Record summary
The family of this 319-nucleotide RNA from Thermofilum adornatum is "Archaeal signal recognition particle RNA". It is annotated as a non-coding RNA gene. NCBI's taxonomy places the organism under Archaea, Thermoproteati, Thermoproteota, Thermofilales, Thermofilum.
RNA sequence: CGGCGGGAAAGCCCCAGGGGGCUAGCCCUCCCCUGCACCACAAACGGGCUUUACGGUGGGGGGCGUCAACCCCCAUGGGCGUCCAGCCUGCUGUGCGGAGACCCGCAAAGGUACCAAUGAAAACCGUUUCCACGGGACGCCUCGUCCGCGUAAGGCUCCUCGUAGGAGGAGUCCUUGCGCGGCAGAGGCCGAACCGGGUUAGGCCCGGGAGGGAGCGGCCCUAAGGCCUCCGAGGCGUGUUCGUGGAGGCGACGGUUAGAGGGCUGCCUUUGCGGGGACCCCACACAGCAGGCUGGGCCACCGUGGGGGGAUGCCGCCG
Numbered sequence: 001c002g003g004c005g006g007g008a009a010a011g012c013c014c015c016a017g018g019g020g021g022c023u024a025g026c027c028c029u030c031c032c033c034u035g036c037a038c039c040a041c042a043a044a045c046g047g048g049c050u051u052u053a054c055g056g057u058g059g060g061g062g063g064c065g066u067c068a069a070c071c072c073c074c075a076u077g078g079g080c081g082u083c084c085a086g087c088c089u090g091c092u093g094u095g096c097g098g099a100g101a102c103c104c105g106c107a108a109a110g111g112u113a114c115c116a117a118u119g120a121a122a123a124c125c126g127u128u129u130c131c132a133c134g135g136g137a138c139g140c141c142u143c144g145u146c147c148g149c150g151u152a153a154g155g156c157u158c159c160u161c162g163u164a165g166g167a168g169g170a171g172u173c174c175u176u177g178c179g180c181g182g183c184a185g186a187g188g189c190c191g192a193a194c195c196g197g198g199u200u201a202g203g204c205c206c207g208g209g210a211g212g213g214a215g216c217g218g219c220c221c222u223a224a225g226g227c228c229u230c231c232g233a234g235g236c237g238u239g240u241u242c243g244u245g246g247a248g249g250c251g252a253c254g255g256u257u258a259g260a261g262g263g264c265u266g267c268c269u270u271u272g273c274g275g276g277g278a279c280c281c282c283a284c285a286c287a288g289c290a291g292g293c294u295g296g297g298c299c300a301c302c303g304u305g306g307g308g309g310g311a312u313g314c315c316g317c318c319g
Base pairs, nucleotide, nucleotide: 001319002318003317004316005315006314008312011064012063013062014061015060016034017033018032019031020030021029038059039058040057041056070309071308072307073306074305075304076303077302078301081298082297083296084295087291089290090289091288092287093286094285095284097282098281100279102276103275104274105273106272107271108270109269110268111267112266113265114262115261122257123256124255125254126253127252128251129247130246131245132244133243134242135241136240137238138237139236140235141234142233143232144231146182147181148180149179150178151177152176153175154174155173156171157170158169159168160167161166186229187228188227189226190225196221197220198219199218204213205212206211
Dot-bracket structure: ((((((.(..(((((((((((.......))))))...((((..............))))))))).....(((((((((..((((..(.(((((((.((.(.((((((((((((((......(((((((((((((((((((((((.((((((((((((((((....)))))).))))))))))...(((((.....((((....(((....)))....))))...))))).)))))))).))))))))...)))))))...))..))))))))))))..).)).))))))))...))))..)))))))))..).))))))

Its Rfam clan is "SRP clan".